[Rfam]
RNA sequence: CUCUUCAACCUCAGGACUUGCAGAAUUAAUGGAAUGCCGUCCUAAGGUUGUUGAGUU
Number, nucleotide and partner (000 for none) at each position: 001c055002u054003c053004u000005u000006c050007a049008a048009c047010c046011u045012c000013a043014g042015g041016a040017c039018u000019u000020g037021c036022a035023g000024a000025a000026u000027u000028a000029a000030u000031g000032g000033a000034a000035u022036g021037c020038c000039g017040u016041c015042c014043u013044a000045a011046g010047g009048u008049u007050g006051u000052u000053g003054a002055g001056u000057u000
A member of the RNA family "mir-676 microRNA precursor family" from Macaca mulatta, 57 nucleotides long.
For this family Rfam cites "Deep sequencing of human nuclear and cytoplasmic small RNAs reveals an unexpectedly complex subcellular distribution of miRNAs and tRNA 3' trailers" (Liao et al., PLoS One, 2010).
Rfam links the family to the GO terms miRNA-mediated post-transcriptional gene silencing and RISC complex.